[Rfam]
RNA sequence: UUUCAUACCACCACCCGAGUCUACCCGCCUGUGGCUAUUUGGCACAUUAUCCUUGGCUUUAAGGGCUAUGGCGGCUGACCGAUAGGGUAUACCUUGAAAAGGGUAUGCCUCCCAGUGCGGAAAGGGUCUAGUGCCAGUUAUCU
Numbered sequence: 001u002u003u004c005a006u007a008c009c010a011c012c013a014c015c016c017g018a019g020u021c022u023a024c025c026c027g028c029c030u031g032u033g034g035c036u037a038u039u040u041g042g043c044a045c046a047u048u049a050u051c052c053u054u055g056g057c058u059u060u061a062a063g064g065g066c067u068a069u070g071g072c073g074g075c076u077g078a079c080c081g082a083u084a085g086g087g088u089a090u091a092c093c094u095u096g097a098a099a100a101g102g103g104u105a106u107g108c109c110u111c112c113c114a115g116u117g118c119g120g121a122a123a124g125g126g127u128c129u130a131g132u133g134c135c136a137g138u139u140a141u142c143u
Base pairs, nucleotide, nucleotide: 003137013127014126015125016124019079020078021077024074025073027072028071029070033067034066035065036064085110086109087108088107089106090105091104092103093102094101095100111120112119

The record is a 143-nucleotide RNA sequence from Pelotomaculum isophthalicicum, which matches "Molybdenum/Tungsten riboswitch aptamer (Moco RNA motif)" in Rfam. The source organism's lineage runs through Bacteria, Bacillati, Clostridia, Eubacteriales and Pelotomaculum isophthalicicum. The base pairs follow the family's consensus structure, which is taken from published work.